The family of this 82-nucleotide RNA sequence is "tRNA". Transfer RNA (tRNA) molecules are approximately 80 nucleotides in length. Their secondary structure includes four short double-helical elements and three loops (D, anti-codon, and T loops). Further hydrogen bonds mediate the characteristic L-shaped molecular structure. tRNAs have two regions of fundamental functional importance: the anti-codon, which is responsible for specific mRNA codon recognition, and the 3' end, to which the tRNAs corresponding amino acid is attached (by aminoacyl-tRNA synthetases). tRNAs cope with the degeneracy of the genetic code in two manners: having more than one tRNA (with a specific anti-codon) for a particular amino acid; and 'wobble' base-pairing, i.e. permitting non-standard base-pairing at the 3rd anti-codon position. The sequence is in the family's curated seed alignment.
RNA sequence: GGUAGCGUGGCCGAGCGGUCUAAGGCGCUGGAUUAAGGCUCCAGUCUCUUCGGGGGCGUGGGUUCGAAUCCCACCGCUGCCA
Numbered sequence: 001g002g003u004a005g006c007g008u009g010g011c012c013g014a015g016c017g018g019u020c021u022a023a024g025g026c027g028c029u030g031g032a033u034u035a036a037g038g039c040u041c042c043a044g045u046c047u048c049u050u051c052g053g054g055g056g057c058g059u060g061g062g063u064u065c066g067a068a069u070c071c072c073a074c075c076g077c078u079g080c081c082a
Stems, first nucleotide, its partner, number of pairs: 001081007010026003028044005058074005